[Rfam]
RNA sequence: GCAGCUUAAAGGGCUCGUAUGCUUCUUUACACACGGGCAGUCUCGUACAGCCAGAGCGACGGAAGCGGGUAAGGUCUGAGGGUUUGAACUCCCCUUGUCUGUCAACCCGAGAGGGGUUGAGCGAUAAAUCGCUGAGCGGCGCACCAGAAAAGCACUCUCGCGCAGACUAGCCAAAGACGGCGAAAGCAAGAGGCGAUGAUGUCUGUAAUUUGGGAGCUGGGAACACGUCGUGGGAGUUGCAGGGAUAGUUUCUCGAUGUAGAGGAACUGCGCUUUGAUCCUACACGGAGCACGCGUUACACUGUCCAUGCUUAAGUGCACUACGAGCCGUCCUUCACCGGAGAACUCGAUUCAGACUACUCUUUGGCUGC
Numbered sequence: 001g002c003a004g005c006u007u008a009a010a011g012g013g014c015u016c017g018u019a020u021g022c023u024u025c026u027u028u029a030c031a032c033a034c035g036g037g038c039a040g041u042c043u044c045g046u047a048c049a050g051c052c053a054g055a056g057c058g059a060c061g062g063a064a065g066c067g068g069g070u071a072a073g074g075u076c077u078g079a080g081g082g083u084u085u086g087a088a089c090u091c092c093c094c095u096u097g098u099c100u101g102u103c104a105a106c107c108c109g110a111g112a113g114g115g116g117u118u119g120a121g122c123g124a125u126a127a128a129u130c131g132c133u134g135a136g137c138g139g140c141g142c143a144c145c146a147g148a149a150a151a152g153c154a155c156u157c158u159c160g161c162g163c164a165g166a167c168u169a170g171c172c173a174a175a176g177a178c179g180g181c182g183a184a185a186g187c188a189a190g191a192g193g194c195g196a197u198g199a200u201g202u203c204u205g206u207a208a209u210u211u212g213g214g215a216g217c218u219g220g221g222a223a224c225a226c227g228u229c230g231u232g233g234g235a236g237u238u239g240c241a242g243g244g245a246u247a248g249u250u251u252c253u254c255g256a257u258g259u260a261g262a263g264g265a266a267c268u269g270c271g272c273u274u275u276g277a278u279c280c281u282a283c284a285c286g287g288a289g290c291a292c293g294c295g296u297u298a299c300a301c302u303g304u305c306c307a308u309g310c311u312u313a314a315g316u317g318c319a320c321u322a323c324g325a326g327c328c329g330u331c332c333u334u335c336a337c338c339g340g341a342g343a344a345c346u347c348g349a350u351u352c353a354g355a356c357u358a359c360u361c362u363u364u365g366g367c368u369g370c
Base pairs, nucleotide, nucleotide: 001370002369003368004367008363009362012328013327014326015325016324017323018322020067021066022065023064024063036052037051038050040048041047076354077353078352079351080350090235091234092233093232104118105117106116107115108114120133121132122131123130124129136231137230138229139228140227141226155216156215157214158213159212330341331340332339